[Rfam]
RNA: Bacterial RNase P class A
Organism: Propioniciclava tarda
RNA sequence: UGAGUCGGCCGGGUGACCGCGGCGCGCGAGCGUCGAGGAAAGUCCGGACUCCACAGGGCAAGGUGGUGGGUAACGCCCACCCGGGGUGACCCGCGGGACAGUGCCACAGAAAACAGACCGCCCCUUCGGGGGUAAGGGUGAAACGGCGGUGUAAGAGACCACCAGCAUCCCCGGUGACGGGGGUGGCUCGGUAAACCCCACCUGGAGCAAGACCAAGAAGGGCUUCGGCCCGCGGACGCCGUCCGAGCGCUGCCCGCGCGAGGCGUCCGGGUAGGUCGCACGGCAUCACCGGCGCACGCGCCGGCGGACCGAAGGCGGCUGGCAACAGCCGUCGCAGAUGGAUGGUCACCCGUUCUUCGUGAACGACAGAAUCCGGCUUACAGGCCGGCUCAUCCC
Numbered sequence: 001u002g003a004g005u006c007g008g009c010c011g012g013g014u015g016a017c018c019g020c021g022g023c024g025c026g027c028g029a030g031c032g033u034c035g036a037g038g039a040a041a042g043u044c045c046g047g048a049c050u051c052c053a054c055a056g057g058g059c060a061a062g063g064u065g066g067u068g069g070g071u072a073a074c075g076c077c078c079a080c081c082c083g084g085g086g087u088g089a090c091c092c093g094c095g096g097g098a099c100a101g102u103g104c105c106a107c108a109g110a111a112a113a114c115a116g117a118c119c120g121c122c123c124c125u126u127c128g129g130g131g132g133u134a135a136g137g138g139u140g141a142a143a144c145g146g147c148g149g150u151g152u153a154a155g156a157g158a159c160c161a162c163c164a165g166c167a168u169c170c171c172c173g174g175u176g177a178c179g180g181g182g183g184u185g186g187c188u189c190g191g192u193a194a195a196c197c198c199c200a201c202c203u204g205g206a207g208c209a210a211g212a213c214c215a216a217g218a219a220g221g222g223c224u225u226c227g228g229c230c231c232g233c234g235g236a237c238g239c240c241g242u243c244c245g246a247g248c249g250c251u252g253c254c255c256g257c258g259c260g261a262g263g264c265g266u267c268c269g270g271g272u273a274g275g276u277c278g279c280a281c282g283g284c285a286u287c288a289c290c291g292g293c294g295c296a297c298g299c300g301c302c303g304g305c306g307g308a309c310c311g312a313a314g315g316c317g318g319c320u321g322g323c324a325a326c327a328g329c330c331g332u333c334g335c336a337g338a339u340g341g342a343u344g345g346u347c348a349c350c351c352g353u354u355c356u357u358c359g360u361g362a363a364c365g366a367c368a369g370a371a372u373c374c375g376g377c378u379u380a381c382a383g384g385c386c387g388g389c390u391c392a393u394c395c396c
Base pairs, nucleotide, nucleotide: 001392002391003390004389005388006387007386008385009384010383011381012350013349014348015347016346017345018344020035021034022033023032024031025030040379041378042377044376045375046374047373048372049207050206051205052204056255057254058253059252061203062202063201064200065199066080067079068078069077070076081095082093083092084091085090096198097197101196102195103192104191105190118137119136120133121132122131123130124129145163146162148160149159150158165187166185167184168183169182170181171180172179173178211277212276213275214274221268222267224265226263247259248258249257250256